Background:
The record is a 373-nucleotide part of an RNA from Nitrosotalea sinensis, which matches "Archaeal large subunit ribosomal RNA" in Rfam. The source organism's lineage runs through Archaea, Thermoproteati, Nitrososphaeria, Nitrosotaleales and Nitrosotalea.

Nucleotides: 373
Base pairs, nucleotide, nucleotide: 001338002337003336004335011332012331013330014329015328016327017326019324020323021322036060037059038058039057040056045050061095062094063093064092065091066090068088096100108317109316110315111314112313113312114311115309116308119133120132121131136171137170138169139168140167141166142165143164144161147158148157149156150155175303176302177301179234180233181232184231185230186227187226188225189224190223193222194221195220200215201214202213203212204211235253236252237251238250239249240248254258274290275289276288277287278286279285353371354370355369356368357367
Number, partner (000 for none) and nucleotide at each position: 001338c002337g003336g004335g005000u006000a007000u008000a009000c010000c011332g012331u013330a014329g015328g016327c017326g018000a019324g020323g021322g022000a023000a024000c025000u026000c027000g028000g029000c030000a031000a032000a033000a034000u035000a036060g037059u038058c039057c040056u041000g042000u043000a044000c045050c046000u047000u048000u049000g050045g051000u052000a053000u054000a055000a056040g057039g058038g059037a060036u061095g062094c063093c064092u065091g066090c067000a068088g069000c070000g071000g072000u073000a074000a075000u076000g077000u078000a079000g080000a081000a082000u083000u084000g085000c086000c087000a088068u089000c090066g091065c092064a093063g094062g095061u096100c097000g098000c099000a100096g101000u102000g103000a104000c105000a106000a107000g108317g109316g110315g111314g112313u113312c114311c115309c116308g117000a118000c119133u120132g121131u122000u123000u124000a125000a126000u127000a128000a129000a130000a131121a132120c133119a134000c135000a136171g137170g138169u139168g140167a141166c142165u143164g144161c145000u146000a147158g148157u149156c150155c151000g152000a153000a154000a155150g156149g157148a158147u159000g160000c161144g162000u163000a164143u165142a166141g167140u168139c169138a170137c171136u172000g173000a174000a175303u176302c177301c178000u179234g180233g181232c182000c183000a184231g185230u186227g187226c188225a189224g190223g191000u192000a193222c194221c195220u196000a197000a198000a199000a200215c201214u202213u203212g204211g205000g206000u207000u208000c209000a210000a211204c212203u213202g214201a215200g216000c217000u218000a219000a220195g221194g222193g223190c224189c225188u226187g227186u228000a229000a230185a231184c232181g233180c234179c235253g236252g237251g238250a239249g240248u241000a242000a243000c244000u245000c246000u247000g248240a249239c250238u251237c252236u253235c254258u255000u256000a257000a258254g259000g260000u261000a262000g263000c264000c265000a266000a267000a268000u269000g270000c271000c272000u273000u274290g275289u276288c277287g278286g279285g280000u281000a282000a283000g284000u285279u286278c287277c288276g289275a290274c291000g292000u293000g294000c295000a296000u297000g298000a299000a300000u301177g302176g303175a304000a305000c306000a307000a308116c309115g310000a311114g312113g313112g314111c315110c316109c317108c318000g319000c320000u321000g322021u323020c324019c325000c326017c327016g328015c329014c330013u331012a332011c333000a334000a335004c336003c337002c338001g339000g340000u341000g342000a343000a344000g345000c346000c347000a348000c349000a350000u351000a352000a353371g354370c355369u356368g357367g358000a359000c360000g361000a362000a363000c364000a365000g366000u367357c368356c369355a370354g371353c372000a373000u
For this family Rfam cites "Crystal structure of the ribosome at 5.5 A resolution" (Yusupov et al., Science, 2001).